[Rfam]
RNA sequence: AACAUGCACUGGGGGAGCUGCAACAUCAAAUGUGGCUGAGAGGAAAGAUUUCCGACCCUUACGACCCGAUCUGGAUAAUACCAGCGUGGGGAAGUGCAGUCGGCAUUCG
Numbered sequence: 001a002a003c004a005u006g007c008a009c010u011g012g013g014g015g016a017g018c019u020g021c022a023a024c025a026u027c028a029a030a031u032g033u034g035g036c037u038g039a040g041a042g043g044a045a046a047g048a049u050u051u052c053c054g055a056c057c058c059u060u061a062c063g064a065c066c067c068g069a070u071c072u073g074g075a076u077a078a079u080a081c082c083a084g085c086g087u088g089g090g091g092a093a094g095u096g097c098a099g100u101c102g103g104c105a106u107u108c109g
Stems, first nucleotide, its partner, number of pairs: 006097005011059004017036005043052003065090004071084004